[Rfam]
The record is an 87-nucleotide RNA sequence from Brenneria sp. EniD312, which matches "KDPG-aldolase RNA" in Rfam.

RNA sequence: GGUGCGGUCGGAUGUCUGCUGCUAAUGCAGACCCCUGUGGCAGGGGCGCGCUAUAUCGUUAAUGGUGCCUGCGGGCAUGACUGGAGA
Numbered sequence: 001g002g003u004g005c006g007g008u009c010g011g012a013u014g015u016c017u018g019c020u021g022c023u024a025a026u027g028c029a030g031a032c033c034c035c036u037g038u039g040g041c042a043g044g045g046g047c048g049c050g051c052u053a054u055a056u057c058g059u060u061a062a063u064g065g066u067g068c069c070u071g072c073g074g075g076c077a078u079g080a081c082u083g084g085a086g087a
Stems, first nucleotide, its partner, number of pairs: 001052006014032006065078005

Taxonomically the source falls in Brenneria (Bacteria, Pseudomonadati, Pseudomonadota, Gammaproteobacteria). Rfam classes the family as a small RNA. The sequence is in the family's curated seed alignment.